Overview: Rfam assigns this 66-nucleotide RNA sequence from Lentilactobacillus kisonensis to the family "RAGATH-18 RNA". From the family's description: Actinobacteria, Firmicutes, Fusobacteria, Thermotogae (1 example).
[Rfam]
RNA sequence: CUUGUGGACUAUCAUAUCAACCAUAGUAGAGUGCUUGUGUCGAGGUGGGAUAGGAUGAAGCAAGAA
Number, nucleotide and partner (000 for none) at each position: 001c064002u063003u062004g061005u060006g000007g000008a000009c053010u052011a051012u050013c049014a000015u000016a000017u000018c000019a000020a000021c048022c047023a046024u000025a000026g000027u000028a000029g041030a040031g000032u000033g000034c000035u000036u000037g000038u000039g000040u030041c029042g000043a000044g000045g000046u023047g022048g021049g013050a012051u011052a010053g009054g000055a000056u000057g000058a000059a000060g005061c004062a003063a002064g001065a000066a000
The sequence is in the family's curated seed alignment. The base pairs follow the family's consensus structure, which is taken from published work.